Rfam assigns this 80-nucleotide RNA from Medicago truncatula to the family "MIR5269 microRNA precursor family".
The family has 2 seed sequences and 389 matches in Rfam 15.1.

RNA sequence: UUGGUUUAAAUCAAGGUGGUCCUCACAUUUUGGAAAUGGGUUCCACUUAAAGUGGUGGGACACGCAUUGAUUUCAUCCAA
Numbered sequence: 001u002u003g004g005u006u007u008a009a010a011u012c013a014a015g016g017u018g019g020u021c022c023u024c025a026c027a028u029u030u031u032g033g034a035a036a037u038g039g040g041u042u043c044c045a046c047u048u049a050a051a052g053u054g055g056u057g058g059g060a061c062a063c064g065c066a067u068u069g070a071u072u073u074c075a076u077c078c079a080a
Stems, first nucleotide, its partner, number of pairs: 001080004006075001008073007016065003023058003026054007
The source organism's lineage runs through Eukaryota, Viridiplantae, Fabaceae, Hologalegina and Medicago.
Its family is annotated with RISC complex and miRNA-mediated post-transcriptional gene silencing in the Gene Ontology.